[Rfam]
RNA sequence: GUACUCCCUCCGUAAACUAAUAUAAGAGCGUUUAGGUCACUAAAAUAGUGAUCUAAAUGCUCUUAUAUUAGUUUACAGAGGAAGUAU
Numbered sequence: 001g002u003a004c005u006c007c008c009u010c011c012g013u014a015a016a017c018u019a020a021u022a023u024a025a026g027a028g029c030g031u032u033u034a035g036g037u038c039a040c041u042a043a044a045a046u047a048g049u050g051a052u053c054u055a056a057a058u059g060c061u062c063u064u065a066u067a068u069u070a071g072u073u074u075a076c077a078g079a080g081g082a083a084g085u086a087u
Stems, first nucleotide, its partner, number of pairs: 003085003007081004013075005019069023
Overview:
MIR1120/MIR1122 microRNA precursor family: an 87-nucleotide RNA from Triticum aestivum. The family has 6 seed sequences and 44,765 matches in Rfam 15.1. Pairs were carried over by alignment from the consensus structure, which was predicted with RNAalifold.